[Rfam]
RNA sequence: CCACAUCACUCCCUACUCGGAUCGUCCGGCACGUUCCUGCCGGUUGAGGAGAAGCAU
Numbered sequence: 001c002c003a004c005a006u007c008a009c010u011c012c013c014u015a016c017u018c019g020g021a022u023c024g025u026c027c028g029g030c031a032c033g034u035u036c037c038u039g040c041c042g043g044u045u046g047a048g049g050a051g052a053a054g055c056a057u
Stems, first nucleotide, its partner, number of pairs: 009049002013046001015044001026043006

A member of the RNA family "msiK RNA" from Streptomyces sp. ADI93-02, 57 nucleotides long. It scores 48 bits against the family's covariance model. The family has 120 seed sequences and 1,374 matches in Rfam 15.1. The organism belongs to Streptomyces, within Bacteria. By type it is a cis-regulatory element.